This 385-nucleotide RNA from Microvirga sp. VF16 belongs to the Rfam family "Alphaproteobacteria transfer-messenger RNA". It is annotated as a non-coding RNA gene. The family is grouped with related families in Rfam's "tRNA clan". From the family's description: Bacterial tmRNA, also known as 10Sa RNA or SsrA, is named for its dual tRNA and mRNA-like properties.

[Rfam]
RNA sequence: AGACUGGAUAUUGUGCCUUCGGGUGUCUAUAUCGCAGUUGUCAGGUUCGCCUGACUAUGAUCGUAGAGGCAGAGUGGAAUAGGCGUUUAGGACGCGGGUUCGAUUCCCGCCGCCUCCACCACAAGCACACCGGCCGUCCAGGGACUGCAAGACGGAUGUUGGGCGACUGGCCUUUCGUUGAGGUCAGGCCGCCAUCCCGGUGUGUUUGUGAUGGGGGCGACAUGGGUUCGACUGGGCGCGAUAAAGGCUAGGUUGCGAUUAGGCUGAGCUACGGCCUUAACAGUGCAAAUUCAUAAAUGCCAACGACAACGUUGACAUGGGUGCAGUGCGCCUCGCGGCGUAACCAUCCGGGGCUCGGGACAGCCUAGCAACAGAAACGGCACCU
Numbered sequence: 001a002g003a004c005u006g007g008a009u010a011u012u013g014u015g016c017c018u019u020c021g022g023g024u025g026u027c028u029a030u031a032u033c034g035c036a037g038u039u040g041u042c043a044g045g046u047u048c049g050c051c052u053g054a055c056u057a058u059g060a061u062c063g064u065a066g067a068g069g070c071a072g073a074g075u076g077g078a079a080u081a082g083g084c085g086u087u088u089a090g091g092a093c094g095c096g097g098g099u100u101c102g103a104u105u106c107c108c109g110c111c112g113c114c115u116c117c118a119c120c121a122c123a124a125g126c127a128c129a130c131c132g133g134c135c136g137u138c139c140a141g142g143g144a145c146u147g148c149a150a151g152a153c154g155g156a157u158g159u160u161g162g163g164c165g166a167c168u169g170g171c172c173u174u175u176c177g178u179u180g181a182g183g184u185c186a187g188g189c190c191g192c193c194a195u196c197c198c199g200g201u202g203u204g205u206u207u208g209u210g211a212u213g214g215g216g217g218c219g220a221c222a223u224g225g226g227u228u229c230g231a232c233u234g235g236g237c238g239c240g241a242u243a244a245a246g247g248c249u250a251g252g253u254u255g256c257g258a259u260u261a262g263g264c265u266g267a268g269c270u271a272c273g274g275c276c277u278u279a280a281c282a283g284u285g286c287a288a289a290u291u292c293a294u295a296a297a298u299g300c301c302a303a304c305g306a307c308a309a310c311g312u313u314g315a316c317a318u319g320g321g322u323g324c325a326g327u328g329c330g331c332c333u334c335g336c337g338g339c340g341u342a343a344c345c346a347u348c349c350g351g352g353g354c355u356c357g358g359g360a361c362a363g364c365c366u367a368g369c370a371a372c373a374g375a376a377a378c379g380g381c382a383c384c385u
Stems, first nucleotide, its partner, number of pairs: 040055005059260005069253002073249003084238003088234003094110005111219007262275001264273001351366004358381001